The family of this 149-nucleotide RNA sequence from Populus trichocarpa is "MIR480 microRNA precursor family". Rfam links the family to the GO terms RISC complex and miRNA-mediated post-transcriptional gene silencing.
RNA sequence: AAUUUAUUUAAGGACAAAUCCUUAUUUAGUUAUGGUAAACACAUACACGUGACUGCUCAGAAUCAUUUAUUAUCAUAAAUCCGACUAUAUCAUUAACAUUGAAAAACAAAUGAUAAUUACUGUGUGAACAAUAAUUUUUUAAGAUUUGA
Number, nucleotide and partner (000 for none) at each position: 001a000002a000003u000004u000005u000006a145007u144008u142009u141010a000011a000012g138013g000014a136015c000016a000017a000018a132019u131020c000021c000022u000023u124024a123025u122026u000027u119028a118029g117030u116031u115032a114033u113034g000035g000036u000037a000038a000039a000040c000041a000042c000043a000044u000045a000046c000047a000048c000049g000050u000051g000052a000053c000054u000055g000056c000057u000058c000059a000060g000061a000062a000063u000064c000065a000066u000067u000068u000069a000070u000071u000072a000073u000074c000075a000076u000077a000078a000079a000080u000081c000082c000083g000084a000085c000086u000087a000088u000089a000090u000091c000092a000093u000094u000095a000096a000097c000098a000099u000100u000101g000102a000103a000104a000105a000106a000107c000108a000109a000110a000111u000112g000113a033114u032115a031116a030117u029118u028119a027120c000121u000122g025123u024124g023125u000126g000127a000128a000129c000130a000131a019132u018133a000134a000135u000136u014137u000138u012139u000140u000141a009142a008143g000144a007145u006146u000147u000148g000149a000